[Rfam]
RNA sequence: GUCGAGACAACCAGAAAACCCAGAACGGAAUUGAAAC
Numbered sequence: 001g002u003c004g005a006g007a008c009a010a011c012c013a014g015a016a017a018a019c020c021c022a023g024a025a026c027g028g029a030a031u032u033g034a035a036a037c
Base pairs, nucleotide, nucleotide: 002034003033004032005031008027012023014021

CRISPR RNA direct repeat element: a 37-nucleotide RNA sequence from Natranaeroarchaeum sulfidigenes. Lineage of the source: Archaea > Methanobacteriati > Halobacteria > Natronoarchaeaceae > Natranaeroarchaeum.